[Rfam]
RNA sequence: UCACAAGUUCGAGGCCAUAGCAGAAACACUCAUGGCAUGCAGACCUGUCAGAUUCCAGCAAAUCUGCAAAUUCUGCU
Numbered sequence: 001u002c003a004c005a006a007g008u009u010c011g012a013g014g015c016c017a018u019a020g021c022a023g024a025a026a027c028a029c030u031c032a033u034g035g036c037a038u039g040c041a042g043a044c045c046u047g048u049c050a051g052a053u054u055c056c057a058g059c060a061a062a063u064c065u066g067c068a069a070a071u072u073c074u075g076c077u
Base pairs, nucleotide, nucleotide: 013045014044015042019077020076021075022074023073024072025071027039028038049066050065051064052063053062054061
This 77-nucleotide RNA sequence from Crocodylus porosus belongs to the Rfam family "Mammalian CPEB3 ribozyme".
The mammalian CPEB3 ribozyme is a self cleaving RNA located in the second intron of the CPEB3 gene which belongs to a family of genes regulating messenger RNA polyadenylation.
The literature on the family includes a 2006 paper in Science by Salehi-Ashtiani et al., "A genomewide search for ribozymes reveals an HDV-like sequence in the human CPEB3 gene".